[Rfam]
RNA sequence: CCUCUGAUAGCUCAGCUGGAAGAGCGCAAGACUGUAAUUGUCCUGUUCUUUAGAGAACUUGUCAUCUUGAGGUCCCUGGUUCGAUCCCGGGUCAGAGGA
Numbered sequence: 001c002c003u004c005u006g007a008u009a010g011c012u013c014a015g016c017u018g019g020a021a022g023a024g025c026g027c028a029a030g031a032c033u034g035u036a037a038u039u040g041u042c043c044u045g046u047u048c049u050u051u052a053g054a055g056a057a058c059u060u061g062u063c064a065u066c067u068u069g070a071g072g073u074c075c076c077u078g079g080u081u082c083g084a085u086c087c088c089g090g091g092u093c094a095g096a097g098g099a
Stems, first nucleotide, its partner, number of pairs: 001098007010025004027069005075091005
Record summary: The family of this 99-nucleotide sequence from Penicillium expansum is "tRNA". Taxonomically the source falls in Penicillium (Eukaryota, Dikarya, Ascomycota, Aspergillaceae). A search with the family's covariance model found it, with a score of 53 bits. The family's consensus secondary structure is taken from published work. It is annotated as a transfer RNA.